[Rfam]
Rfam assigns this 122-nucleotide RNA sequence from Cavia porcellus to the family "Small nucleolar RNA SNORA11".
NCBI's taxonomy places the organism under Eukaryota, Euteleostomi, Mammalia, Theria, Cavia.
About the family: U107 (SNORA11) is a member of the H/ACA class of snoRNAs that guide the sites of modification of uridines to pseudouridines. This snoRNA was identified by RT-PCR from blood cells and its expression confirmed by Northern blot analysis. There is no predicted target for this guide snRNA.
On this family, see Gu et al., Nucleic Acids Res 2005: "A novel experimental approach for systematic identification of box H/ACA snoRNAs from eukaryotes".
Its family is annotated with nucleolus and RNA processing in the Gene Ontology.
The match comes from Rfam's covariance-model search (83 bits).
RNA sequence: UGGGGUGCUCAGAGCAGGUGGCCGGAAGAAUGGCUUCUCUGUUUACAGCACACCCAAUAGGAAUCAUUGUGACAAGGGGCACAAAAUUUAUAACCUCUCUUGGGAGUAAAUGUCCUACACAU
Dot-bracket structure: .((.(((....(((((((.((((........))).).)))))))....))).))........((...(((..(..(((..(.((...)).)..))).......).)))...)).........